A member of the RNA family "Group II catalytic intron D1-D4-1" from Dissulfuribacter thermophilus, 96 nucleotides long. Group II introns are found in rRNA, tRNA and mRNA of organelles in fungi, plants and protists, and also in mRNA in bacteria. The source organism's lineage runs through Bacteria, Dissulfuribacteria, Dissulfuribacterales, Dissulfuribacteraceae and Dissulfuribacter. The base pairs follow the family's consensus structure. On this family, see Bonen and Vogel, Trends Genet 2001: "The ins and outs of group II introns".

[Rfam]
RNA sequence: CGCCUUGUGGAGCAAGCCGGAAGGUAAGGGCACAGGAGUCAGCAGAGGUCAUAGUAGCCAAAGGCCUGGGGUAAUGCCCAGGACAUGGUGAAGGAC
Numbered sequence: 001c002g003c004c005u006u007g008u009g010g011a012g013c014a015a016g017c018c019g020g021a022a023g024g025u026a027a028g029g030g031c032a033c034a035g036g037a038g039u040c041a042g043c044a045g046a047g048g049u050c051a052u053a054g055u056a057g058c059c060a061a062a063g064g065c066c067u068g069g070g071g072u073a074a075u076g077c078c079c080a081g082g083a084c085a086u087g088g089u090g091a092a093g094g095a096c
Base pairs, nucleotide, nucleotide: 002025004023005022006021008019009018010017039046040045048096049095050094057089058088059087066081067080068079